Overview:
proV RNA: a 150-nucleotide RNA sequence.
[Rfam]
RNA sequence: CGUCGCUGCCACUUCACGGGAAGCUGGCAGACCUGGGGCCCUCCGCCCCGGGCCGAAGAACAGACAAGCGCUGGCCGCCCCUCAUGACGGGCGCCAGCCCAACAAGAAAUUUCGGAUGUACGCAUGUUCCAGGAUGGAGCAUGAACCCCA
Numbered sequence: 001c002g003u004c005g006c007u008g009c010c011a012c013u014u015c016a017c018g019g020g021a022a023g024c025u026g027g028c029a030g031a032c033c034u035g036g037g038g039c040c041c042u043c044c045g046c047c048c049c050g051g052g053c054c055g056a057a058g059a060a061c062a063g064a065c066a067a068g069c070g071c072u073g074g075c076c077g078c079c080c081c082u083c084a085u086g087a088c089g090g091g092c093g094c095c096a097g098c099c100c101a102a103c104a105a106g107a108a109a110u111u112u113c114g115g116a117u118g119u120a121c122g123c124a125u126g127u128u129c130c131a132g133g134a135u136g137g138a139g140c141a142u143g144a145a146c147c148c149c150a
Stems, first nucleotide, its partner, number of pairs: 006030006012023004033051007123143008